[Rfam]
RNA sequence: CAGUGGAGGAAGGUUCCACCCAGAUAGUUGUCGAUAGGGGUAGCUAGCGACCGGUUCGGUUGGGUAACUAGCCGGGUCGAAGCCUCGUGACAAAGGCCACCUUGGGCGGUUGAGCGAUCCGAUGGGCCGUAAUGCGA
Numbered sequence: 001c002a003g004u005g006g007a008g009g010a011a012g013g014u015u016c017c018a019c020c021c022a023g024a025u026a027g028u029u030g031u032c033g034a035u036a037g038g039g040g041u042a043g044c045u046a047g048c049g050a051c052c053g054g055u056u057c058g059g060u061u062g063g064g065u066a067a068c069u070a071g072c073c074g075g076g077u078c079g080a081a082g083c084c085u086c087g088u089g090a091c092a093a094a095g096g097c098c099a100c101c102u103u104g105g106g107c108g109g110u111u112g113a114g115c116g117a118u119c120c121g122a123u124g125g126g127c128c129g130u131a132a133u134g135c136g137a
Stems, first nucleotide, its partner, number of pairs: 020040002047088004052079006061070001063068001095111004100106001114130003
Shown here is a 137-nucleotide RNA sequence from Ensifer fredii, a member of the family "Group II catalytic intron D1-D4-4". The pairing is the family consensus, mapped onto this sequence. The sequence is in the family's curated seed alignment. The source organism's lineage runs through Bacteria, Hyphomicrobiales, Rhizobiaceae, Ensifer and Ensifer fredii. Rfam 15.1 lists 840 matches to the family in 506 species. From the family's description: Group II introns are found in rRNA, tRNA and mRNA of organelles in fungi, plants and protists, and also in mRNA in bacteria.